Rfam assigns this 127-nucleotide RNA sequence from Roseibium limicola to the family "Glycine riboswitch aptamer".

[Rfam]
RNA sequence: CUCUGGAAAGCAGUUUUUCGACCUGGUGCAAAUGCACCGGGCUGAAACGGCUCACCGAAGGAGUAACCGGUCUGACGCGCCUUGAUGGCGAACCUUCCGGGAAAUCUCUCAGGUAUCUCGGACAGAG
Dot-bracket structure: (((((......((((.................................)))).(((((..(((...((...............................))....))))).)))........)))))